[Rfam]
RNA sequence: GUUUCCGUGAGGAAGGGUCUGAAGGAAGCUGGAGGCAAACCUGCGAGCUGACGGACAGAAACGUCAUAGAAGGCUGAGAUUCCUGUGGCGAGUGAGCACAACAUCACAAAGCCUUUUGGUUCAGGGAACACAGUAAAUGAUGCGGUUGUGCAGGGACAGUUCACGGU
Numbered sequence: 001g002u003u004u005c006c007g008u009g010a011g012g013a014a015g016g017g018u019c020u021g022a023a024g025g026a027a028g029c030u031g032g033a034g035g036c037a038a039a040c041c042u043g044c045g046a047g048c049u050g051a052c053g054g055a056c057a058g059a060a061a062c063g064u065c066a067u068a069g070a071a072g073g074c075u076g077a078g079a080u081u082c083c084u085g086u087g088g089c090g091a092g093u094g095a096g097c098a099c100a101a102c103a104u105c106a107c108a109a110a111g112c113c114u115u116u117u118g119g120u121u122c123a124g125g126g127a128a129c130a131c132a133g134u135a136a137a138u139g140a141u142g143c144g145g146u147u148g149u150g151c152a153g154g155g156a157c158a159g160u161u162c163a164c165g166g167u
Base pairs, nucleotide, nucleotide: 002015003014004013005012006011028167029166030165031164035160036159040154041153042152043151044150045149046147047146048145049144050143062142063141064140065139066138067137073134074133075132078129080127081126082125083124087113088112089111092107093106094105095104
Shown here is a 167-nucleotide sequence from Leptolyngbya sp. Cla-17, a member of the family "Group II catalytic intron D1-D4-3". A search with the family's covariance model found it, with a score of 130 bits. The pairing is the family consensus, mapped onto this sequence.